RNA: mir-2 microRNA precursor family
RNA sequence: ACGCUCUUUAAAGUGGCGGUGACGUGUUGGUAAUAAUAUUCAUAUCACAGCCAGCUUUGAGAGCGUUG
Numbered sequence: 001a002c003g004c005u006c007u008u009u010a011a012a013g014u015g016g017c018g019g020u021g022a023c024g025u026g027u028u029g030g031u032a033a034u035a036a037u038a039u040u041c042a043u044a045u046c047a048c049a050g051c052c053a054g055c056u057u058u059g060a061g062a063g064c065g066u067u068g
Stems, first nucleotide, its partner, number of pairs: 005062002008060006014053004019048004025044003